Source information:
A member of the RNA family "Small nucleolar RNA SNORA72" from Otolemur garnettii, 132 nucleotides long. By type it is an H/ACA-box small nucleolar RNA. The family's consensus secondary structure was predicted with PFOLD. Gene Ontology terms of the family: nucleolus and RNA processing. A reference for the family is Ganot et al. (1997), "The family of box ACA small nucleolar RNAs is defined by an evolutionarily conserved secondary structure and ubiquitous sequence elements essential for RNA accumulation", Genes Dev. About the family: U72 is a member of the H/ACA class of snoRNAs. The snoRNA gene is located in intron 4 of the ribosomal L30 protein gene in human, mouse and chicken. It is one of the family's seed sequences.
[Rfam]
RNA sequence: GUGCAAAUAUUCUCGCUGUUCUGAUUUUAUAAUAAUCAGCACAGGCUAAACAUUUGCUAUAUAAAAACCAGGUGUGUGUCCCCAGACCUAGUUCUUUUCCUAGGUUUGGUUUUAUAAAUGCUGUUGAUAAAC
Numbered sequence: 001g002u003g004c005a006a007a008u009a010u011u012c013u014c015g016c017u018g019u020u021c022u023g024a025u026u027u028u029a030u031a032a033u034a035a036u037c038a039g040c041a042c043a044g045g046c047u048a049a050a051c052a053u054u055u056g057c058u059a060u061a062u063a064a065a066a067a068c069c070a071g072g073u074g075u076g077u078g079u080c081c082c083c084a085g086a087c088c089u090a091g092u093u094c095u096u097u098u099c100c101u102a103g104g105u106u107u108g109g110u111u112u113u114a115u116a117a118a119u120g121c122u123g124u125u126g127a128u129a130a131a132c
Stems, first nucleotide, its partner, number of pairs: 003057003016044004021039006067125001069123002072121002083109001084107008